[Rfam]
RNA sequence: CCAGUCGGCCGGACAGCCGCUGCCGCAAGUGCCGAAAGGCCGCGGGGGAGGAAAGUCCGGGCUCCAUGGAGACACGGUGCCGGGUAACGCCCGGCGAGGGCGACCUUAGGGAAAGUGCCACAGAAAGCAAACCGCUCCGGCUAAGCCGGAGUAAGGGUGAAAGGGUGGGGUAAGAGCCCACCGCGCCUCUGGUAACAGCGGCGGCACGGUAAACCCCACCGGGAGCAAGACCGAAUAGGGACAACGCGGACCCUGGAGCAAUCCAGGGCCCAGGCCGGUUUCCGGGCCAGUUGUCCGGGUUGGUUGCGUGAGGCGUCUGGCAACAGGCGUCCCAGAUGAAUGGCUGUCACGUCCGCGCAGAUCUUCGGAUGGCGCGGGCCAUACAGAACCCGGCUUAUAGGCCGGCUGGCAUU
Numbered sequence: 001c002c003a004g005u006c007g008g009c010c011g012g013a014c015a016g017c018c019g020c021u022g023c024c025g026c027a028a029g030u031g032c033c034g035a036a037a038g039g040c041c042g043c044g045g046g047g048g049a050g051g052a053a054a055g056u057c058c059g060g061g062c063u064c065c066a067u068g069g070a071g072a073c074a075c076g077g078u079g080c081c082g083g084g085u086a087a088c089g090c091c092c093g094g095c096g097a098g099g100g101c102g103a104c105c106u107u108a109g110g111g112a113a114a115g116u117g118c119c120a121c122a123g124a125a126a127g128c129a130a131a132c133c134g135c136u137c138c139g140g141c142u143a144a145g146c147c148g149g150a151g152u153a154a155g156g157g158u159g160a161a162a163g164g165g166u167g168g169g170g171u172a173a174g175a176g177c178c179c180a181c182c183g184c185g186c187c188u189c190u191g192g193u194a195a196c197a198g199c200g201g202c203g204g205c206a207c208g209g210u211a212a213a214c215c216c217c218a219c220c221g222g223g224a225g226c227a228a229g230a231c232c233g234a235a236u237a238g239g240g241a242c243a244a245c246g247c248g249g250a251c252c253c254u255g256g257a258g259c260a261a262u263c264c265a266g267g268g269c270c271c272a273g274g275c276c277g278g279u280u281u282c283c284g285g286g287c288c289a290g291u292u293g294u295c296c297g298g299g300u301u302g303g304u305u306g307c308g309u310g311a312g313g314c315g316u317c318u319g320g321c322a323a324c325a326g327g328c329g330u331c332c333c334a335g336a337u338g339a340a341u342g343g344c345u346g347u348c349a350c351g352u353c354c355g356c357g358c359a360g361a362u363c364u365u366c367g368g369a370u371g372g373c374g375c376g377g378g379c380c381a382u383a384c385a386g387a388a389c390c391c392g393g394c395u396u397a398u399a400g401g402c403c404g405g406c407u408g409g410c411a412u413u
Base pairs, nucleotide, nucleotide: 001409002408003407004406005405006404007403008402009401010400011398012348013347014346015345016344017343018342020048021047023045024044025043026042053396054395055394057393058392059391060390061389062225063224064223065222071281072280075221076220077219078218079217080094081093082092083091084090095109096107097106098105099104110216111215115214116213117210118209119208132156133155134152135151136150137149138148139147140146141145164182165181166180167179168178169177183205184203185202186201187200189198190197191196229305230304231303232302239296240295241294242293243292244291273287275285276284277283312331313330314329315328316327317326318325319324
A member of the RNA family "Bacterial RNase P class A" from Roseibium alexandrii, 413 nucleotides long. The match comes from Rfam's covariance-model search (310 bits). By type it is a ribozyme. Taxonomically the source falls in Roseibium (Bacteria, Pseudomonadota, Alphaproteobacteria, Hyphomicrobiales).